A member of the RNA family "L31-Firmicutes ribosomal protein leader", 33 nucleotides long. A reference for the family is Eckert and Weinberg (2020), "Discovery of 20 novel ribosomal leader candidates in bacteria and archaea", BMC Microbiol.

[Rfam]
RNA sequence: CUAUGGCGAAAAAGUUUGCCAUGGCGGGAGGAG
Numbered sequence: 001c002u003a004u005g006g007c008g009a010a011a012a013a014g015u016u017u018g019c020c021a022u023g024g025c026g027g028g029a030g031g032a033g
Stems, first nucleotide, its partner, number of pairs: 001024010